[Rfam]
A member of the RNA family "Small nucleolar RNA Z39" from Octodon degus, 63 nucleotides long. Gene Ontology terms of the family: nucleolus and RNA processing. The literature on the family includes a 2003 paper in Nucleic Acids Res by Chen et al., "The high diversity of snoRNAs in plants: identification and comparative study of 120 snoRNA genes from Oryza sativa". Taxonomically the source falls in Octodon (Eukaryota, Theria, Boreoeutheria, Euarchontoglires). The family's RNA type in Rfam is C/D-box small nucleolar RNA.

RNA sequence: AUGUAUGUGCUGAAGCAAAGCAAUCUGAUGAAUAUUGUGAUGUUGUAAAUGCUUUCUGAUGCU
Numbered sequence: 001a002u003g004u005a006u007g008u009g010c011u012g013a014a015g016c017a018a019a020g021c022a023a024u025c026u027g028a029u030g031a032a033u034a035u036u037g038u039g040a041u042g043u044u045g046u047a048a049a050u051g052c053u054u055u056c057u058g059a060u061g062c063u
Stems, first nucleotide, its partner, number of pairs: 003062003012055005021045004026040001